About this RNA:
The record is a 585-nucleotide part of an RNA from Pseudomonas aeruginosa, which matches "Bacterial small subunit ribosomal RNA" in Rfam. Rfam's curators put it in the seed alignment.
RNA sequence: UGACGGGGGCCCGCACAAGCGGUGGAGCAUGUGGUUUAAUUCGAAGCAACGCGAAGAACCUUACCUGGCCUUGACAUGCUGAGAACUUUCCAGAGAUGGAUUGGUGCCUUCGGGAACUCAGACACAGGUGCUGCAUGGCUGUCGUCAGCUCGUGUCGUGAGAUGUUGGGUUAAGUCCCGUAACGAGCGCAACCCUUGUCCUUAGUUACCAGCACCUCGGGUGGGCACUCUAAGGAGACUGCCGGUGACAAACCGGAGGAAGGUGGGGAUGACGUCAAGUCAUCAUGGCCCUUACGGCCAGGGCUACACACGUGCUACAAUGGUCGGUACAAAGGGUUGCCAAGCCGCGAGGUGGAGCUAAUCCCAUAAAACCGAUCGUAGUCCGGAUCGCAGUCUGCAACUCGACUGCGUGAAGUCGGAAUCGCUAGUAAUCGUGAAUCAGAAUGUCACGGUGAAUACGUUCCCGGGCCUUGUACACACCGCCCGUCACACCAUGGGAGUGGGUUGCUCCAGAAGUAGCUAGUCUAACCGCAAGGGGGACGGUUACCACGGAGUGAUUCAUGACUGGGGUGAAGUCGUAACAAGG
Number, nucleotide and partner (000 for none) at each position: 001u476002g475003a473004c472005g471006g000007g470008g469009g468010c467011c466012c465013g464014c000015a460016c459017a000018a000019g424020c423021g422022g421023u420024g317025g000026a315027g314028c313029a312030u311031g310032u309033g308034g306035u305036u000037u000038a000039a000040u055041u054042c053043g052044a000045a000046g000047c000048a000049a000050c000051g000052c043053g042054a041055a040056g000057a000058a000059c000060c000061u000062u000063a000064c301065c300066u299067g298068g297069c296070c295071u000072u000073g000074a000075c000076a000077u124078g123079c121080u120081g119082a118083g117084a000085a000086c103087u000088u000089u100090c099091c098092a097093g000094a000095g000096a000097u092098g091099g090100a089101u000102u000103g086104g000105u116106g000107c114108c113109u000110u000111c000112g000113g108114g107115a000116a105117c083118u082119c081120a080121g079122a000123c078124a077125c000126a000127g290128g289129u000130g288131c287132u286133g285134c000135a000136u284137g283138g279139c278140u277141g275142u000143c273144g272145u000146c000147a000148g187149c186150u185151c184152g183153u182154g163155u162156c161157g000158u000159g000160a000161g156162a155163u154164g000165u000166u179167g178168g177169g176170u000171u000172a000173a000174g000175u000176c169177c168178c167179g166180u000181a000182a153183c152184g151185a150186g149187c148188g000189c000190a000191a000192c000193c267194c266195u265196u264197g000198u235199c234200c233201u232202u231203a230204g229205u000206u000207a000208c224209c223210a000211g000212c222213a221214c220215c000216u000217c000218g000219g000220g214221u213222g212223g209224g208225c000226a000227c000228u000229c204230u203231a202232a201233g200234g199235a198236g000237a000238c258239u257240g000241c255242c254243g253244g252245u251246g000247a000248c000249a000250a000251a245252c244253c243254g242255g241256a000257g239258g238259a000260a000261g000262g000263u000264g196265g195266g194267g193268a000269u000270g000271a000272c144273g143274u000275c141276a000277a140278g139279u138280c000281a000282u000283c137284a136285u133286g132287g131288c130289c128290c127291u000292u000293a000294c000295g070296g069297c068298c067299a066300g065301g064302g000303c000304u000305a035306c034307a000308c033309a032310c031311g030312u029313g028314c027315u026316a000317c024318a000319a000320u000321g376322g375323u374324c373325g372326g371327u370328a000329c000330a000331a000332a000333g364334g363335g362336u000337u000338g357339c356340c000341a000342a000343g352344c351345c350346g000347c000348g000349a000350g345351g344352u343353g000354g000355a000356g339357c338358u000359a000360a000361u000362c335363c334364c333365a000366u000367a000368a000369a000370a327371c326372c325373g324374a323375u322376c321377g000378u000379a000380g000381u000382c000383c414384g000385g000386a000387u000388c409389g408390c407391a406392g405393u404394c403395u000396g000397c000398a000399a000400c000401u000402c000403g394404a393405c392406u391407g390408c389409g388410u000411g000412a000413a000414g383415u000416c000417g000418g000419a000420a023421u022422c021423g020424c019425u000426a000427g000428u000429a000430a452431u451432c450433g449434u448435g447436a446437a000438u000439c000440a000441g000442a000443a000444u000445g000446u436447c435448a434449c433450g432451g431452u430453g000454a000455a000456u000457a000458c000459g016460u015461u000462c000463c000464c013465g012466g011467g010468c009469c008470u007471u005472g004473u003474a000475c002476a001477c000478a000479c584480c000481g581482c000483c000484c577485g576486u000487c000488a000489c571490a570491c569492c568493a000494u566495g565496g564497g000498a000499g561500u560501g559502g558503g557504u556505u555506g554507c553508u552509c551510c550511a000512g000513a000514a000515g546516u545517a544518g543519c542520u541521a000522g540523u539524c538525u537526a000527a000528c535529c534530g000531c000532a000533a000534g529535g528536g000537g525538g524539a523540c522541g520542g519543u518544u517545a516546c515547c000548a000549c000550g510551g509552a508553g507554u506555g505556a504557u503558u502559c501560a500561u499562g000563a000564c496565u495566g494567g000568g492569g491570u490571g489572a000573a000574g000575u000576c485577g484578u000579a000580a000581c481582a000583a000584g479585g000